[Rfam]
The family of this 68-nucleotide sequence is "S15-Flavobacteria ribosomal protein leader". The family's RNA type in Rfam is cis-regulatory leader. On this family, see Eckert and Weinberg, BMC Microbiol 2020: "Discovery of 20 novel ribosomal leader candidates in bacteria and archaea".

RNA sequence: UAUAUUUGCCGCCUGAUUAUGAACGUCAUAAUUAUUGCAUAAAAAUUAUUUAAACAAAUAUUGGAAUG
Numbered sequence: 001u002a003u004a005u006u007u008g009c010c011g012c013c014u015g016a017u018u019a020u021g022a023a024c025g026u027c028a029u030a031a032u033u034a035u036u037g038c039a040u041a042a043a044a045a046u047u048a049u050u051u052a053a054a055c056a057a058a059u060a061u062u063g064g065a066a067u068g
Stems, first nucleotide, its partner, number of pairs: 014034008